[Rfam]
Nucleotides: 071
Base pairs, nucleotide, nucleotide: 003069004068005067006066010026011025012024013023014022027052028051029050030049031048032047033046
Number, partner (000 for none) and nucleotide at each position: 001000a002000u003069a004068a005067u006066g007000g008000a009000c010026c011025c012024a013023a014022a015000g016000g017000c018000a019000g020000u021000a022014u023013u024012u025011g026010g027052u028051a029050u030049u031048u032047c033046c034000a035000u036000a037000u038000a039000u040000a041000g042000u043000a044000u045000a046033g047032g048031g049030g050029a051028u052027a053000a054000u055000u056000a057000u058000a059000g060000a061000a062000u063000u064000g065000a066006c067005a068004u069003u070000u071000a